Notes: This 137-nucleotide RNA sequence from Polypterus senegalus belongs to the Rfam family "Small nucleolar RNA SNORA13". Rfam describes the family as follows. ACA13 is a member of the H/ACA class of snoRNA that guide the sites of modification of uridines to pseudouridines. Rfam classes the family as an H/ACA-box small nucleolar RNA. A search with the family's covariance model found it, with a score of 76 bits. The family is grouped with related families in Rfam's "SNORA13 clan". The family's consensus secondary structure was predicted with CMfinder. Rfam links the family to the GO terms nucleolus and RNA processing.
[Rfam]
RNA sequence: UGCCUUUGUGUUGCCCGUUCAUUGCUUUUUUCCCAAGUGAACGAGGUGUCAAACAAGGCAUACAGCAACUCUUGCAAGUGUAUUUCAUCUGGGUGCUUACCUUUGCACACUUGACUGUAUUUCUUGCAAGAACAAAU
Numbered sequence: 001u002g003c004c005u006u007u008g009u010g011u012u013g014c015c016c017g018u019u020c021a022u023u024g025c026u027u028u029u030u031u032c033c034c035a036a037g038u039g040a041a042c043g044a045g046g047u048g049u050c051a052a053a054c055a056a057g058g059c060a061u062a063c064a065g066c067a068a069c070u071c072u073u074g075c076a077a078g079u080g081u082a083u084u085u086c087a088u089c090u091g092g093g094u095g096c097u098u099a100c101c102u103u104u105g106c107a108c109a110c111u112u113g114a115c116u117g118u119a120u121u122u123c124u125u126g127c128a129a130g131a132a133c134a135a136a137u
Stems, first nucleotide, its partner, number of pairs: 002059005009051002012048004016043008071130008080121001086117002090113001091111002095106002